[Rfam]
RNA sequence: CGAGUCGGCCGGACGGUCGCGGCGCCUCGGCGCUGAGGAAAGUCCGGGCUCCACAGGGCAGGGUGGUGGACAACAUCCACCCGGGGCGACCCGCGGGACAGUGCCACAGAGAACAGACCGCCCGAGUGAUCGGGUAAGGGUGAAACGGCGGUGCAAGAGACCACCGCGUCGCAGGUGACUGCGACGGCACGGCAAACCCCACCCGGAGCAAGACCAAGAAGGAUGCCCCGGCAUCCGCGCAGGUGAUCGAGGGCUGCCCGCCCGAGCCUGCGGGUAGGUCGCGCGCCCGUCGCGGAAGCGGCGGGGGAAGGACGCCGGCGACGGCGUUCGCAGAUGGAUGACCGUCGGCUGUUCGCAGUCACAGAACCCGGCUUACAGGCCGGCUCGUCCU
Numbered sequence: 001c002g003a004g005u006c007g008g009c010c011g012g013a014c015g016g017u018c019g020c021g022g023c024g025c026c027u028c029g030g031c032g033c034u035g036a037g038g039a040a041a042g043u044c045c046g047g048g049c050u051c052c053a054c055a056g057g058g059c060a061g062g063g064u065g066g067u068g069g070a071c072a073a074c075a076u077c078c079a080c081c082c083g084g085g086g087c088g089a090c091c092c093g094c095g096g097g098a099c100a101g102u103g104c105c106a107c108a109g110a111g112a113a114c115a116g117a118c119c120g121c122c123c124g125a126g127u128g129a130u131c132g133g134g135u136a137a138g139g140g141u142g143a144a145a146c147g148g149c150g151g152u153g154c155a156a157g158a159g160a161c162c163a164c165c166g167c168g169u170c171g172c173a174g175g176u177g178a179c180u181g182c183g184a185c186g187g188c189a190c191g192g193c194a195a196a197c198c199c200c201a202c203c204c205g206g207a208g209c210a211a212g213a214c215c216a217a218g219a220a221g222g223a224u225g226c227c228c229c230g231g232c233a234u235c236c237g238c239g240c241a242g243g244u245g246a247u248c249g250a251g252g253g254c255u256g257c258c259c260g261c262c263c264g265a266g267c268c269u270g271c272g273g274g275u276a277g278g279u280c281g282c283g284c285g286c287c288c289g290u291c292g293c294g295g296a297a298g299c300g301g302c303g304g305g306g307g308a309a310g311g312a313c314g315c316c317g318g319c320g321a322c323g324g325c326g327u328u329c330g331c332a333g334a335u336g337g338a339u340g341a342c343c344g345u346c347g348g349c350u351g352u353u354c355g356c357a358g359u360c361a362c363a364g365a366a367c368c369c370g371g372c373u374u375a376c377a378g379g380c381c382g383g384c385u386c387g388u389c390c391u
Stems, first nucleotide, its partner, number of pairs: 001387010011376001012346007020035006040374003044371005049208004056259004061204005066080005081095001082093004096199002101197002103193003118139002120135006147165002150162003166188001167186008212280004251263004292322001